[Rfam]
RNA: Ribosomal protein L19 leader
Organism: Ectobacillus ponti
RNA sequence: ACGAUGUUCCGCUGCGUGAGCCGAAACGGUACGUAAGAGCAUCGG
Numbered sequence: 001a002c003g004a005u006g007u008u009c010c011g012c013u014g015c016g017u018g019a020g021c022c023g024a025a026a027c028g029g030u031a032c033g034u035a036a037g038a039g040c041a042u043c044g045g
Stems, first nucleotide, its partner, number of pairs: 003043007013035006